[Rfam]
RNase MRP: a 454-nucleotide RNA from Erysiphe neolycopersici.
It scores 104 bits against the family's covariance model.
By type it is a ribozyme.
Lineage of the source: Eukaryota > Dikarya > Pezizomycotina > Helotiales > Erysiphe.

RNA sequence: CGCUCGCUCAAAGAAUCGCAUUCAAAGCACUCAAACAGAAGUACCCAUUGUGGUACUUCAAUUCUAUAUAUGCUUUGGGAGAAAGUCCCCGGACAUCUUUAUUUAUAAGGAAAGCGGAAACGCACCGCCAUAGAAGCUCUAGCGGUUAAUCCUCUGUCUGAAACUAUUGAUUUACCCAGCUCUUUUCCGUGCAAAACCUAGCUUAAAUUAUUUCUUAAAACUUCAUGUUGAUAAGUGAGAUGACCUAUGAGGUGAAGAUAUGAGCCCGAGCUUCUCAUGGACGAUGUGAUAUGACAAAGAACAUAUUUUUGCUGGACGGAUGAUCAUGAUCUGGCUUCAUAGUUAUUGACGACAGGUGGAAUUCCAUCGUCGUGAAUUAUAGUCAUGCGAUUGUUUAUCUUGCUACUAAGGUAGCAAGGUGAGUAACUCGAUGGGGCUUACUCUUGAUGCGAGC
Numbered sequence: 001c002g003c004u005c006g007c008u009c010a011a012a013g014a015a016u017c018g019c020a021u022u023c024a025a026a027g028c029a030c031u032c033a034a035a036c037a038g039a040a041g042u043a044c045c046c047a048u049u050g051u052g053g054u055a056c057u058u059c060a061a062u063u064c065u066a067u068a069u070a071u072g073c074u075u076u077g078g079g080a081g082a083a084a085g086u087c088c089c090c091g092g093a094c095a096u097c098u099u100u101a102u103u104u105a106u107a108a109g110g111a112a113a114g115c116g117g118a119a120a121c122g123c124a125c126c127g128c129c130a131u132a133g134a135a136g137c138u139c140u141a142g143c144g145g146u147u148a149a150u151c152c153u154c155u156g157u158c159u160g161a162a163a164c165u166a167u168u169g170a171u172u173u174a175c176c177c178a179g180c181u182c183u184u185u186u187c188c189g190u191g192c193a194a195a196a197c198c199u200a201g202c203u204u205a206a207a208u209u210a211u212u213u214c215u216u217a218a219a220a221c222u223u224c225a226u227g228u229u230g231a232u233a234a235g236u237g238a239g240a241u242g243a244c245c246u247a248u249g250a251g252g253u254g255a256a257g258a259u260a261u262g263a264g265c266c267c268g269a270g271c272u273u274c275u276c277a278u279g280g281a282c283g284a285u286g287u288g289a290u291a292u293g294a295c296a297a298a299g300a301a302c303a304u305a306u307u308u309u310u311g312c313u314g315g316a317c318g319g320a321u322g323a324u325c326a327u328g329a330u331c332u333g334g335c336u337u338c339a340u341a342g343u344u345a346u347u348g349a350c351g352a353c354a355g356g357u358g359g360a361a362u363u364c365c366a367u368c369g370u371c372g373u374g375a376a377u378u379a380u381a382g383u384c385a386u387g388c389g390a391u392u393g394u395u396u397a398u399c400u401u402g403c404u405a406c407u408a409a410g411g412u413a414g415c416a417a418g419g420u421g422a423g424u425a426a427c428u429c430g431a432u433g434g435g436g437c438u439u440a441c442u443c444u445u446g447a448u449g450c451g452a453g454c
Stems, first nucleotide, its partner, number of pairs: 002454006008447004014392006022079001023077006038059007083439003087436004114123003125145004130140001268364003276356001278354002282351002292345004328338002394423012